[Rfam]
RNA: Bacillus sRNA ncr1575
RNA sequence: GUAACUAAUAUCGAAGGGACGAUGGGUGGACUAUGAUUUUAUAAUCUUAUUUCUCGCUUAAUAUUGCUGCUUAACGCAGAAAAAUAUUUUUAGCUAAAACGGAAAUAGGAUGAGUCUGCCCAUUUUUCAAAUCAGAUCAAUGAAUACUGCAAACAUUUUGUAGUUAUUUUUUGUCGUACAUUUAAAUGGCAGCAGAAUCCUUCCGUCUAUACUCGGAGGGAUUUUUUA
Numbered sequence: 001g002u003a004a005c006u007a008a009u010a011u012c013g014a015a016g017g018g019a020c021g022a023u024g025g026g027u028g029g030a031c032u033a034u035g036a037u038u039u040u041a042u043a044a045u046c047u048u049a050u051u052u053c054u055c056g057c058u059u060a061a062u063a064u065u066g067c068u069g070c071u072u073a074a075c076g077c078a079g080a081a082a083a084a085u086a087u088u089u090u091u092a093g094c095u096a097a098a099a100c101g102g103a104a105a106u107a108g109g110a111u112g113a114g115u116c117u118g119c120c121c122a123u124u125u126u127u128c129a130a131a132u133c134a135g136a137u138c139a140a141u142g143a144a145u146a147c148u149g150c151a152a153a154c155a156u157u158u159u160g161u162a163g164u165u166a167u168u169u170u171u172u173g174u175c176g177u178a179c180a181u182u183u184a185a186a187u188g189g190c191a192g193c194a195g196a197a198u199c200c201u202u203c204c205g206u207c208u209a210u211a212c213u214c215g216g217a218g219g220g221a222u223u224u225u226u227u228a
Base pairs, nucleotide, nucleotide: 016128017127018126019125023122024121025120026119029116030115031114042113044111045110046109047108048107049106050105051104052103053102054101056094057093058092060090061089063087064086135175136174137173142168143167146164147163148162196223197222198221199220200219201218202217203216204215205214